This 86-nucleotide RNA from Abrus precatorius belongs to the Rfam family "Small nucleolar RNA Z221/R21b". A reference for the family is Chen et al. (2003), "The high diversity of snoRNAs in plants: identification and comparative study of 120 snoRNA genes from Oryza sativa", Nucleic Acids Res. It is annotated as a C/D-box small nucleolar RNA. Lineage of the source: Eukaryota > Euphyllophyta > Magnoliopsida > Fabaceae > Abrus.
RNA sequence: GGGCUGUGAUGAGUUACAGAGAAAGUCAUGCACCACUCUGAUGAUUCAGUGCUGAUAAAUUUCUCAUACCCAUUCAAUCUGAGCUC
Numbered sequence: 001g002g003g004c005u006g007u008g009a010u011g012a013g014u015u016a017c018a019g020a021g022a023a024a025g026u027c028a029u030g031c032a033c034c035a036c037u038c039u040g041a042u043g044a045u046u047c048a049g050u051g052c053u054g055a056u057a058a059a060u061u062u063c064u065c066a067u068a069c070c071c072a073u074u075c076a077a078u079c080u081g082a083g084c085u086c
Base pairs, nucleotide, nucleotide: 001086002085003084004083